[Rfam]
RNA sequence: GUUGGCUACGGCGACAUGCACCCAAUAAGCAUAGGCGGGAAGAUUGUUGGCUCUCUCUGCGCCAUCGCUGGCGUGCUGACCAUCGCCCUGCCCGUCCCCGUCAUCGUGUCCAAC
Numbered sequence: 001g002u003u004g005g006c007u008a009c010g011g012c013g014a015c016a017u018g019c020a021c022c023c024a025a026u027a028a029g030c031a032u033a034g035g036c037g038g039g040a041a042g043a044u045u046g047u048u049g050g051c052u053c054u055c056u057c058u059g060c061g062c063c064a065u066c067g068c069u070g071g072c073g074u075g076c077u078g079a080c081c082a083u084c085g086c087c088c089u090g091c092c093c094g095u096c097c098c099c100g101u102c103a104u105c106g107u108g109u110c111c112a113a114c
Base pairs, nucleotide, nucleotide: 001114002113004111005110007108008107009106010105011104013102014101015100018097020095021094037077038076040074049063050062051061
RNA: Potassium channel RNA editing signal
Organism: Hucho hucho